[Rfam]
The family of this 88-nucleotide sequence from Zea mays is "Small nucleolar RNA Z162". Its family is annotated with RNA processing and nucleolus in the Gene Ontology. Pairs were carried over by alignment from the consensus structure, which was predicted with PFOLD. Rfam's curators put it in the seed alignment. The family has 9 seed sequences and 146 matches in Rfam 15.1. A reference for the family is Chen et al. (2003), "The high diversity of snoRNAs in plants: identification and comparative study of 120 snoRNA genes from Oryza sativa", Nucleic Acids Res. Lineage of the source: Eukaryota > Petrosaviidae > Poales > Tripsacinae > Zea.
Nucleotides: 088
Base pairs, nucleotide, nucleotide: 004086005085006084007083008082010076011075012074013073014072043052044051045050
Number, partner (000 for none) and nucleotide at each position: 001000g002000g003000u004086g005085g006084c007083a008082c009000a010076g011075u012074g013073a014072g015000g016000a017000a018000c019000u020000a021000a022000u023000u024000u025000u026000g027000c028000u029000a030000a031000u032000g033000u034000a035000u036000c037000u038000a039000u040000g041000a042000g043052g044051u045050c046000a047000a048000a049000a050045g051044g052043c053000c054000a055000g056000u057000g058000a059000a060000u061000c062000a063000a064000a065000u066000g067000u068000c069000c070000u071000u072014u073013u074012c075011a076010u077000u078000c079000u080000g081000a082008g083007u084006g085005c086004c087000a088000a